Annotation: This 83-nucleotide RNA sequence from Nephila pilipes belongs to the Rfam family "Vault RNA".

RNA sequence: GCGUGGGCUUUGUCGUGUGGUUACUUCGGUACCUGGAUUUAUUAGAGAAUCUUCCUUGACCACUGACGCUGUCCUAUGCUUUU
Numbered sequence: 001g002c003g004u005g006g007g008c009u010u011u012g013u014c015g016u017g018u019g020g021u022u023a024c025u026u027c028g029g030u031a032c033c034u035g036g037a038u039u040u041a042u043u044a045g046a047g048a049a050u051c052u053u054c055c056u057u058g059a060c061c062a063c064u065g066a067c068g069c070u071g072u073c074c075u076a077u078g079c080u081u082u083u
Stems, first nucleotide, its partner, number of pairs: 002078006012067004017063004026059004
Taxonomically the source falls in Nephila (Eukaryota, Bilateria, Protostomia, Arachnida). About the family: This family of RNAs are found as part of the enigmatic vault ribonucleoprotein complex. The complex consists of a major vault protein (MVP), two minor vault proteins (VPARP and TEP1), and several small untranslated RNA molecules. It has been suggested that the vault complex is involved in drug resistance.